[Rfam]
RNA sequence: GGAUAAUGAUGACAUCAUGUGAUAAGGUCUCGUUCGUCGUAAUGGUGAGAUUUUUCUCACCUUGCCGACCAUCCUGUUAUAUCACCACCCAUAAACUGAGUCC
Dot-bracket structure: ((((..........................................(((........)...))....................................))))
A member of the RNA family "Small nucleolar RNA Z43" from Centaurea solstitialis, 103 nucleotides long. By type it is a C/D-box small nucleolar RNA. A search with the family's covariance model found it, with a score of 89 bits. The literature on the family includes a 2003 paper in Nucleic Acids Res by Chen et al., "The high diversity of snoRNAs in plants: identification and comparative study of 120 snoRNA genes from Oryza sativa". The source organism's lineage runs through Eukaryota, Viridiplantae, campanulids, Carduoideae and Centaurea.